A member of the RNA family "UnaL2 LINE 3' element" from Conger conger, 54 nucleotides long. For this family Rfam cites "Solution structure of an RNA stem-loop derived from the 3' conserved region of eel LINE UnaL2" (Baba et al., RNA, 2004). NCBI's taxonomy places the organism under Eukaryota, Metazoa, Anguilliformes, Congridae, Conger.

RNA sequence: UUUGCACUGUAUUGUAUGUCACUCUGGAUAAGAGUGUCUGCUAAAUGACAAUAA
Dot-bracket structure: ............((((...((((((.....))))))..))).)...........

The family's RNA type in Rfam is cis-regulatory element.